[Rfam]
RNA sequence: CCUAUGGAGAGUACUAGGACCUGUGAGUAGUAUCUUUGAUACAAAAGCAUACUCGAUGAAGUAGGAA
Numbered sequence: 001c002c003u004a005u006g007g008a009g010a011g012u013a014c015u016a017g018g019a020c021c022u023g024u025g026a027g028u029a030g031u032a033u034c035u036u037u038g039a040u041a042c043a044a045a046a047g048c049a050u051a052c053u054c055g056a057u058g059a060a061g062u063a064g065g066a067a
Base pairs, nucleotide, nucleotide: 001065002064003063004062005061009054010053011052012051013050022049023048024047030042031041032040
RNA: RAGATH-18 RNA